Shown here is a 54-nucleotide RNA from Raineyella antarctica, a member of the family "L31-Actinobacteria ribosomal protein leader". The family is grouped with related families in Rfam's "Ribosomal Protein L31 Leader clan". Pairs were carried over by alignment from the consensus structure, which is taken from published work. A search with the family's covariance model found it, with a score of 38 bits. Rfam classes the family as a cis-regulatory leader. For this family Rfam cites "Discovery of 20 novel ribosomal leader candidates in bacteria and archaea" (Eckert and Weinberg, BMC Microbiol, 2020).
RNA sequence: UCGGUCCGGUUCACGCCUGCAGGUAUCUCCACCCUGUGCGGACGACCCGGCGCC
Numbered sequence: 001u002c003g004g005u006c007c008g009g010u011u012c013a014c015g016c017c018u019g020c021a022g023g024u025a026u027c028u029c030c031a032c033c034c035u036g037u038g039c040g041g042a043c044g045a046c047c048c049g050g051c052g053c054c
Stems, first nucleotide, its partner, number of pairs: 003054003006050004014044002017041005